The record is a 127-nucleotide RNA sequence from Perca fluviatilis, which matches "Small nucleolar RNA SNORA77" in Rfam. By type it is an H/ACA-box small nucleolar RNA. The family's consensus secondary structure was predicted with RNAalifold. A reference for the family is Schattner et al. (2006), "A computational screen for mammalian pseudouridylation guide H/ACA RNAs", RNA.
Nucleotides: 127
Base pairs, nucleotide, nucleotide: 001055002054003053004052005051006050014042015041016040017039022034023033024032067118068117069116070115071114072113073112074111075110076109077108082104083103084102085101086100
Number, partner (000 for none) and nucleotide at each position: 001055g002054c003053a004052g005051a006050c007000u008000c009000a010000c011000u012000c013000u014042g015041u016040u017039c018000u019000u020000u021000g022034c023033u024032g025000u026000u027000c028000a029000c030000u031000c032024c033023a034022g035000c036000c037000u038000c039017g040016a041015a042014c043000u044000u045000u046000u047000u048000c049000u050006g051005u052004c053003u054002g055001c056000u057000a058000c059000a060000u061000a062000a063000a064000c065000a066000u067118g068117c069116a070115g071114a072113a073112u074111g075110u076109a077108a078000c079000a080000c081000a082104c083103a084102c085101u086100g087000u088000u089000u090000u091000u092000u093000c094000u095000a096000a097000g098000g099000c100086u101085a102084g103083u104082g105000u106000c107000a108077u109076u110075a111074u112073g113072u114071u115070c116069u117068g118067c119000u120000a121000c122000a123000u124000u125000a126000c127000a
Notes: Lineage of the source: Eukaryota > Opisthokonta > Metazoa > Perciformes > Perca. A search with the family's covariance model found it, with a score of 58 bits. Rfam's curators write: ACA63 (SNORA77) is a member of the H/ACA class of snoRNAs that guide the sites of modification of uridines to pseudouridines. This snoRNA was identified by computational screening and its expression in mouse experimentally verified by Northern blot and primer extension analysis. ACA63 is proposed to guide the pseudouridylation of 18S rRNA U814.